[Rfam]
RNA sequence: GUGUUUGCGGGUGUAGCAUCAUCAAGAUUCACAUGGAUAUCCACAUGUUGAGCGAGAUACAUAUGAGAAUCUUGAUGAUGCUGCAUCGGCAAUCGG
Numbered sequence: 001g002u003g004u005u006u007g008c009g010g011g012u013g014u015a016g017c018a019u020c021a022u023c024a025a026g027a028u029u030c031a032c033a034u035g036g037a038u039a040u041c042c043a044c045a046u047g048u049u050g051a052g053c054g055a056g057a058u059a060c061a062u063a064u065g066a067g068a069a070u071c072u073u074g075a076u077g078a079u080g081c082u083g084c085a086u087c088g089g090c091a092a093u094c095g096g
Stems, first nucleotide, its partner, number of pairs: 010087021032065004
Dot-bracket structure: .........(((((((((((((((((((((.((((..........................)))).))))))))))))))))))))).........
The family of this 96-nucleotide RNA from Colocasia esculenta is "mir-172 microRNA precursor family". mir-172 has been experimentally verified in Arabidopsis thaliana. This family is thought to target mRNAs coding for APETALA2-like transcription factors. The mature sequence is excised from the 3' arm of the hairpin. The family has 11 seed sequences and 2,076 matches in Rfam 15.1. Its family is annotated with RISC complex and miRNA-mediated post-transcriptional gene silencing in the Gene Ontology. The organism belongs to Colocasia, within Eukaryota. On this family, see Jones-Rhoades and Bartel, Mol Cell 2004: "Computational Identification of Plant MicroRNAs and Their Targets, Including a Stress-Induced miRNA".